[Rfam]
RNA sequence: GGUAGUUCUCGGUUGAUGCACCCUGGAAUUGGGCUCCCUCCUCACUGGUUCCUGGUGCUUCACCUGAGAACCGCG
Numbered sequence: 001g002g003u004a005g006u007u008c009u010c011g012g013u014u015g016a017u018g019c020a021c022c023c024u025g026g027a028a029u030u031g032g033g034c035u036c037c038c039u040c041c042u043c044a045c046u047g048g049u050u051c052c053u054g055g056u057g058c059u060u061c062a063c064c065u066g067a068g069a070a071c072c073g074c075g
Stems, first nucleotide, its partner, number of pairs: 002074002005071008014062003019057004025052008
mir-9223 microRNA precursor family: a 75-nucleotide RNA from Myotis lucifugus. The match comes from Rfam's covariance-model search (68 bits). Gene Ontology terms of the family: RISC complex and miRNA-mediated post-transcriptional gene silencing. Rfam 15.1 lists 14,641 matches to the family in 28 species.